[Rfam]
RNA sequence: AGCUUUGUGCAAUGGCAGUAUUGUAGCCAAUGAGGUUUAUCCGAGGUGCGAUUAUUGCUAAUUGAAAACUUCUCUCAAUACCCCACCAUAAUGACUUGAAAUAUAGUUGGCAUUGGCAAUUUUUGACAGUCUCUAUGGAGG
Numbered sequence: 001a002g003c004u005u006u007g008u009g010c011a012a013u014g015g016c017a018g019u020a021u022u023g024u025a026g027c028c029a030a031u032g033a034g035g036u037u038u039a040u041c042c043g044a045g046g047u048g049c050g051a052u053u054a055u056u057g058c059u060a061a062u063u064g065a066a067a068a069c070u071u072c073u074c075u076c077a078a079u080a081c082c083c084c085a086c087c088a089u090a091a092u093g094a095c096u097u098g099a100a101a102u103a104u105a106g107u108u109g110g111c112a113u114u115g116g117c118a119a120u121u122u123u124u125g126a127c128a129g130u131c132u133c134u135a136u137g138g139a140g141g
Stems, first nucleotide, its partner, number of pairs: 020052005026047003034042002086116002088113002092109005130141004
RNA: U4 spliceosomal RNA
Organism: Colobus angolensis